This 120-nucleotide RNA from Branchiostoma belcheri belongs to the Rfam family "Vault RNA". It is annotated as a non-coding RNA gene.

RNA sequence: GUGCUGGCUAUGUCGUGUGGGUACUUCGUACACUAUGGUUACAAUUUGCACUGCUAAUGCAAAGGACGCGGGUUCGAAUCCCGCACCCCUUUAGACCCACUGACGCCAUCCAGCACUUUU
Numbered sequence: 001g002u003g004c005u006g007g008c009u010a011u012g013u014c015g016u017g018u019g020g021g022u023a024c025u026u027c028g029u030a031c032a033c034u035a036u037g038g039u040u041a042c043a044a045u046u047u048g049c050a051c052u053g054c055u056a057a058u059g060c061a062a063a064g065g066a067c068g069c070g071g072g073u074u075c076g077a078a079u080c081c082c083g084c085a086c087c088c089c090u091u092u093a094g095a096c097c098c099a100c101u102g103a104c105g106c107c108a109u110c111c112a113g114c115a116c117u118u119u120u
Stems, first nucleotide, its partner, number of pairs: 002115006012104004017100004025078004
The base pairs follow the family's consensus structure, which is taken from published work.
Rfam describes the family as follows. This family of RNAs are found as part of the enigmatic vault ribonucleoprotein complex.
The source organism's lineage runs through Eukaryota, Metazoa, Bilateria, Chordata and Branchiostoma.
It scores 45 bits against the family's covariance model.